[Rfam]
RNA: mir-147 microRNA precursor family
RNA sequence: UGGGAAUCCAGCGGAAUCACCUCUGCACAAACUCGUCUUCUGAACCAGUGUGCGGAGAUGCUUCCGCCGCAUUCUCA
Numbered sequence: 001u002g003g004g005a006a007u008c009c010a011g012c013g014g015a016a017u018c019a020c021c022u023c024u025g026c027a028c029a030a031a032c033u034c035g036u037c038u039u040c041u042g043a044a045c046c047a048g049u050g051u052g053c054g055g056a057g058a059u060g061c062u063u064c065c066g067c068c069g070c071a072u073u074c075u076c077a
Stems, first nucleotide, its partner, number of pairs: 001077002004074004009069001011067006018060002021057009032048002